ZMP/ZTP riboswitch aptamer (pfl RNA motif): an 81-nucleotide RNA sequence from Paenibacillus phyllosphaerae. It scores 56 bits against the family's covariance model. NCBI's taxonomy places the organism under Bacteria, Bacillota, Bacilli, Caryophanales, Paenibacillus.
RNA sequence: AAACGCAUAGGUGACUGGCGUACGCGGAGAACCGCGAGGGAGCCUGUGCUGCAGUUAGUGCCGUUCGCCUGGGCAAAGGUA
Dot-bracket structure: ....((((((((..(([[[[...((((....))))..))..)))))))).........((((...]]]]..))))......